[Rfam]
Description: Shown here is a 209-nucleotide RNA sequence from Eubacterium sp. CAG:603, a member of the family "Clostridiales-3 RNA". Lineage of the source: Bacteria > Clostridia > Eubacteriales > Eubacteriaceae > Eubacterium. Pairs were carried over by alignment from the consensus structure, which is taken from published work. The sequence is in the family's curated seed alignment.
RNA sequence: CAGUCAUCAUAUCAGUAGACUGAUGGAUUGAGAGAUGAAGGGCGAGAGGUUUGUCCUGGUCCACGCAAGGCAGAUAGGGGAGAUAGUGCUUCUCUUAUGAGAAGGGCGUCGUGAACACAGUUAAGUGGCUCGUCUGUAGCUCCCGGAGGUGAGUACACCUCUACGUAUAUGGGGCGAUGAGGGGUCAAGAAGACUGGCAUAUACCUUAA
Numbered sequence: 001c002a003g004u005c006a007u008c009a010u011a012u013c014a015g016u017a018g019a020c021u022g023a024u025g026g027a028u029u030g031a032g033a034g035a036u037g038a039a040g041g042g043c044g045a046g047a048g049g050u051u052u053g054u055c056c057u058g059g060u061c062c063a064c065g066c067a068a069g070g071c072a073g074a075u076a077g078g079g080g081a082g083a084u085a086g087u088g089c090u091u092c093u094c095u096u097a098u099g100a101g102a103a104g105g106g107c108g109u110c111g112u113g114a115a116c117a118c119a120g121u122u123a124a125g126u127g128g129c130u131c132g133u134c135u136g137u138a139g140c141u142c143c144c145g146g147a148g149g150u151g152a153g154u155a156c157a158c159c160u161c162u163a164c165g166u167a168u169a170u171g172g173g174g175c176g177a178u179g180a181g182g183g184g185u186c187a188a189g190a191a192g193a194c195u196g197g198c199a200u201a202u203a204c205c206u207u208a209a
Stems, first nucleotide, its partner, number of pairs: 035112002039057007060081003064077001082110003086107002089104005116127003146161006165204007183195004